[Rfam]
RNA sequence: CUGUGCAGAGGUAGUUGUUUGUACAGUUUGAGGGUUUGUGACACCACCCGGUUGAUGGAGAUAACUGUACAAGCCACUGCCUUGCAUGG
Dot-bracket structure: ((((((.((((((((.(((((((((((....((((..........))))...(......)...))))))))))).))))))))))))))